[Rfam]
RNA sequence: CGCGCCGUCAUUGGGGAGUAGCCGCCCUUCGCUGCCGAAGGGGCUGACGUCAACAUACUUGGCCCGCAGGCCAUGGCGUCAGCGGUGUUUGUGCUUGGCAAGACCUUUGACCAUGGACGCCUGCGUUUUUGGCCGGGGGCGCUGUGGUCAAUCGUGCUUGCGCCGGCCUGGAUAUUU
Numbered sequence: 001c002g003c004g005c006c007g008u009c010a011u012u013g014g015g016g017a018g019u020a021g022c023c024g025c026c027c028u029u030c031g032c033u034g035c036c037g038a039a040g041g042g043g044c045u046g047a048c049g050u051c052a053a054c055a056u057a058c059u060u061g062g063c064c065c066g067c068a069g070g071c072c073a074u075g076g077c078g079u080c081a082g083c084g085g086u087g088u089u090u091g092u093g094c095u096u097g098g099c100a101a102g103a104c105c106u107u108u109g110a111c112c113a114u115g116g117a118c119g120c121c122u123g124c125g126u127u128u129u130u131g132g133c134c135g136g137g138g139g140c141g142c143u144g145u146g147g148u149c150a151a152u153c154g155u156g157c158u159u160g161c162g163c164c165g166g167c168c169u170g171g172a173u174a175u176u177u
Stems, first nucleotide, its partner, number of pairs: 026041003043083010060073005084176007
Dot-bracket structure: .........................(((..........))).((((((((((.......(((((....)))))))))))))))(((((((...............................................................................))))))).